[Rfam]
A member of the RNA family "mir-9261 microRNA precursor family" from Cnephaeus nilssonii, 113 nucleotides long. It scores 88 bits against the family's covariance model.
RNA sequence: AACCAUUUGUCCCUCGUCCCACGGCGUUUUAAAAAAGUCCCGCCAAUGGAAAGAUUCUUUCCAAAAAAUAGGGACUUUUUUAAAACGCCGUGGGACGCGGGACAAAUGGUUAA
Numbered sequence: 001a002a003c004c005a006u007u008u009g010u011c012c013c014u015c016g017u018c019c020c021a022c023g024g025c026g027u028u029u030u031a032a033a034a035a036a037g038u039c040c041c042g043c044c045a046a047u048g049g050a051a052a053g054a055u056u057c058u059u060u061c062c063a064a065a066a067a068a069u070a071g072g073g074a075c076u077u078u079u080u081u082a083a084a085a086c087g088c089c090g091u092g093g094g095a096c097g098c099g100g101g102a103c104a105a106a107u108g109g110u111u112a113a
Stems, first nucleotide, its partner, number of pairs: 001111013015097027